[Rfam]
RNA sequence: GGAAACGUUUCGUCACCGGUGUGGCGCCCAGUCUUCAAAACUGGUGGACGGUCGAAAGGUCGUUGGUAGGUUCGACUCCUAUACGUUUCC
Numbered sequence: 001g002g003a004a005a006c007g008u009u010u011c012g013u014c015a016c017c018g019g020u021g022u023g024g025c026g027c028c029c030a031g032u033c034u035u036c037a038a039a040a041c042u043g044g045u046g047g048a049c050g051g052u053c054g055a056a057a058g059g060u061c062g063u064u065g066g067u068a069g070g071u072u073c074g075a076c077u078c079c080u081a082u083a084c085g086u087u088u089c090c
Stems, first nucleotide, its partner, number of pairs: 001090008011026006028044005047064005067081004